[Rfam]
RNA sequence: GCCUCUGAGGAUGAAUAGAAAAAUACUUUCCGAGAUGUUUCAUGCGGAAAAUUUUUGGAGACCUGAACUGAAGAGGC
Numbered sequence: 001g002c003c004u005c006u007g008a009g010g011a012u013g014a015a016u017a018g019a020a021a022a023a024u025a026c027u028u029u030c031c032g033a034g035a036u037g038u039u040u041c042a043u044g045c046g047g048a049a050a051a052u053u054u055u056u057g058g059a060g061a062c063c064u065g066a067a068c069u070g071a072a073g074a075g076g077c
Stems, first nucleotide, its partner, number of pairs: 003075004